Nucleotides: 075
Base pairs, nucleotide, nucleotide: 002073003072005070006069007068008066009065010064011063012062013061014060015058018055019054021052022051023050027048028047029046
Number, partner (000 for none) and nucleotide at each position: 001000c002073a003072c004000a005070u006069g007068u008066c009065g010064c011063c012062u013061g014060a015058a016000a017000c018055u019054u020000g021052c022051u023050u024000u025000g026000a027048c028047c029046u030000a031000a032000a033000u034000a035000c036000a037000u038000u039000u040000g041000c042000a043000a044000c045000a046029a047028g048027g049000u050023g051022a052021g053000c054019a055018a056000a057000g058015u059000u060014u061013c062012a063011g064010g065009c066008g067000u068007g069006u070005a071000a072003g073002u074000g075000a